Notes: The family of this 136-nucleotide RNA from Esox lucius is "Small nucleolar RNA SNORA84". The match comes from Rfam's covariance-model search (80 bits). The base pairs follow the family's consensus structure, which was predicted with WAR. The family has 28 seed sequences and 757 matches in Rfam 15.1. NCBI's taxonomy places the organism under Eukaryota, Neopterygii, Clupeocephala, Esociformes, Esox. Gene Ontology terms of the family: nucleolus and RNA processing.
RNA sequence: GCCUGGUGGUUCCUAGAGACAGCUGCCCCGUGCUGUUCUGUGGGUUUUGAUUGACAGGCAAAUAUUAAUAUCAGCGAUUUUAUGCAUGGACGCUGCUAUUCCAAGUAGCUUCCAUAGCCCGGUUGCUGAGACAGUG
Dot-bracket structure: ((((..((...((((.(.(((((........)))))..).))))...))......))))............(.((((((....((((((..((((((......))))))..)))).))..)))))).)........